[Rfam]
RNA sequence: AAAAAGGGCAGGCCUUUUUUAAGGCACAAAGAUGCUUUCGCGUCUAGUGAUGAAUCGCGAUCACGAGAUUUAUCCUGCAUAAUUUCUGACAUGCCGCGUCGGAAUGGGCCGAGAAGGCUAAUUCCGCCG
Number, nucleotide and partner (000 for none) at each position: 001a000002a000003a000004a000005a000006g000007g000008g078009c077010a076011g075012g074013c024014c023015u022016u021017u000018u000019u000020u000021a016022a015023g014024g013025c049026a048027c047028a000029a000030a045031g044032a043033u042034g041035c040036u000037u000038u000039c000040g035041c034042g033043u032044c031045u030046a000047g027048u026049g025050a073051u072052g071053a070054a069055u068056c067057g000058c000059g000060a000061u000062c000063a000064c000065g000066a000067g056068a055069u054070u053071u052072a051073u050074c012075c011076u010077g009078c008079a000080u000081a000082a000083u000084u000085u000086c000087u000088g000089a000090c000091a000092u000093g000094c000095c000096g128097c000098g127099u126100c000101g125102g124103a123104a122105u121106g000107g000108g118109c117110c116111g000112a000113g000114a000115a000116g110117g109118c108119u000120a000121a105122u104123u103124c102125c101126g099127c098128c096129g000
RNA: U11 spliceosomal RNA
Organism: Plasmopara halstedii